Notes:
This 35-nucleotide sequence from Myotis myotis belongs to the Rfam family "Iron response element I". Rfam classes the family as a cis-regulatory element. It scores 42 bits against the family's covariance model. Its family is annotated with response to iron ion in the Gene Ontology. Rfam 15.1 lists 6,829 matches to the family in 599 species.
Nucleotides: 035
Base pairs, nucleotide, nucleotide: 002034003033004032006031007030008029010028012027013026014025016023017021
Number, partner (000 for none) and nucleotide at each position: 001000c002034u003033g004032u005000c006031u007030c008029u009000u010028g011000c012027u013026u014025c015000c016023a017021c018000a019000g020000u021017g022000u023016u024000u025014g026013g027012a028010c029008g030007g031006a032004a033003c034002a035000c